[Rfam]
RNA sequence: UUAUCCAUCGGGAUCUCGGACCAACGGUGAAGCUGUUACGAUCCAGCGUGUGGCUGUUUUUUUUUU
Numbered sequence: 001u002u003a004u005c006c007a008u009c010g011g012g013a014u015c016u017c018g019g020a021c022c023a024a025c026g027g028u029g030a031a032g033c034u035g036u037u038a039c040g041a042u043c044c045a046g047c048g049u050g051u052g053g054c055u056g057u058u059u060u061u062u063u064u065u066u
Stems, first nucleotide, its partner, number of pairs: 003014004017056003
Annotation: Shown here is a 66-nucleotide RNA sequence from Haemaphysalis longicornis, a member of the family "XIST RNA A repeat".